mir-980 microRNA precursor family: a 77-nucleotide RNA from Rhizophagus sp. MUCL 43196. The organism belongs to Rhizophagus, within Eukaryota. Rfam links the family to the GO terms miRNA-mediated post-transcriptional gene silencing and RISC complex. Rfam 15.1 lists 121 matches to the family in 99 species.
[Rfam]
RNA sequence: AGUAGGUAAUAGUCUAACAAAAGGUAGGUAACAUUUAUUUAAACUGUUACCUACCUUUUGUUAGACUAUUACCUACU
Numbered sequence: 001a002g003u004a005g006g007u008a009a010u011a012g013u014c015u016a017a018c019a020a021a022a023g024g025u026a027g028g029u030a031a032c033a034u035u036u037a038u039u040u041a042a043a044c045u046g047u048u049a050c051c052u053a054c055c056u057u058u059u060g061u062u063a064g065a066c067u068a069u070u071a072c073c074u075a076c077u
Stems, first nucleotide, its partner, number of pairs: 004074012017061004023055002028050005